The family of this 101-nucleotide RNA sequence from Rhodococcus jostii is "Glycine riboswitch aptamer". From the family's description: This family represents the bacterial glycine riboswitch.

[Rfam]
RNA sequence: CUCUGGAGAGCAGCGUGUCGGCUGUAACGGCACGUUCACCGACGGGGCACGAUGACCACUCCCACGAGUGUGUCUCCAAACUCUCAGGUUACGGAACAGAG
Dot-bracket structure: (((((......((((((((.........)))))))).(((((..(((...((......................))....))))).))).......)))))
A search with the family's covariance model found it, with a score of 40 bits. The organism belongs to Rhodococcus jostii, within Bacteria.